[Rfam]
RNA sequence: AGGUAGGGGCGAGGGGCUGCGGGAGGAGCCGGGCGGAGGCUGCGGCUUUCGUUUCUCUUGUCUCUCCUCCCUCUCUUU
Numbered sequence: 001a002g003g004u005a006g007g008g009g010c011g012a013g014g015g016g017c018u019g020c021g022g023g024a025g026g027a028g029c030c031g032g033g034c035g036g037a038g039g040c041u042g043c044g045g046c047u048u049u050c051g052u053u054u055c056u057c058u059u060g061u062c063u064c065u066c067c068u069c070c071c072u073c074u075c076u077u078u
Base pairs, nucleotide, nucleotide: 002076003075005074006073007072008071009070011069012068013067014066015065016064020060021059022058023057024056025055026054027053028052029051032047033046034045036043
Source information:
Rfam assigns this 78-nucleotide RNA from Otolemur garnettii to the family "mir-207 microRNA precursor family". For this family Rfam cites "New microRNAs from mouse and human" (Lagos-Quintana et al., RNA, 2003). Taxonomically the source falls in Otolemur (Eukaryota, Metazoa, Amniota, Eutheria).